[Rfam]
RNA sequence: CUUACCUUUUAAGGAAUGUCCAGAGAGGCAUGGAAAGGGUUAUGGAUAGGGGUGCAGUCUACCCUUAUUUCCUUACACCUUCCUGCCCCUGGGAAGGUGUUUUUUUGU
Numbered sequence: 001c002u003u004a005c006c007u008u009u010u011a012a013g014g015a016a017u018g019u020c021c022a023g024a025g026a027g028g029c030a031u032g033g034a035a036a037g038g039g040u041u042a043u044g045g046a047u048a049g050g051g052g053u054g055c056a057g058u059c060u061a062c063c064c065u066u067a068u069u070u071c072c073u074u075a076c077a078c079c080u081u082c083c084u085g086c087c088c089c090u091g092g093g094a095a096g097g098u099g100u101u102u103u104u105u106u107g108u
Stems, first nucleotide, its partner, number of pairs: 005038005016031005045069010075100011
Dot-bracket structure: ....(((((......(((((......)))))..)))))......((((((((((.....)))))))))).....(((((((((((....)))))))))))........
RNA: PyrR binding site